[Rfam]
Overview
The record is a 145-nucleotide RNA sequence from Virgibacillus indicus, which matches "c-di-AMP riboswitch aptamer (ydaO/yuaA leader)" in Rfam. The match comes from Rfam's covariance-model search (89 bits). Taxonomically the source falls in Virgibacillus (Bacteria, Bacillota, Caryophanales, Bacillaceae). Rfam's curators write: This family represents a conserved RNA structure found upstream of the ydaO and yuaA genes in Bacillus subtilis and related genes in other bacteria. Pairs were carried over by alignment from the consensus structure.

RNA sequence: ACCUUUUAUUCGCUGAAUCUUUUUUGAGCGGGGGAACCAUUUUGAUAGAUGAAAAGCUAUCUUGGGGUGAAUCUUACCUUGUAAGAAGGGAUACUCUCAGUCCCUAAUCCGACAGCUAACCUCGUAAGCGUUCUGUUUAUUUGUU
Numbered sequence: 001a002c003c004u005u006u007u008a009u010u011c012g013c014u015g016a017a018u019c020u021u022u023u024u025u026g027a028g029c030g031g032g033g034g035a036a037c038c039a040u041u042u043u044g045a046u047a048g049a050u051g052a053a054a055a056g057c058u059a060u061c062u063u064g065g066g067g068u069g070a071a072u073c074u075u076a077c078c079u080u081g082u083a084a085g086a087a088g089g090g091a092u093a094c095u096c097u098c099a100g101u102c103c104c105u106a107a108u109c110c111g112a113c114a115g116c117u118a119a120c121c122u123c124g125u126a127a128g129c130g131u132u133c134u135g136u137u138u139a140u141u142u143g144u145u
Stems, first nucleotide, its partner, number of pairs: 011130004018027002028125006038064002065110003073085004088104004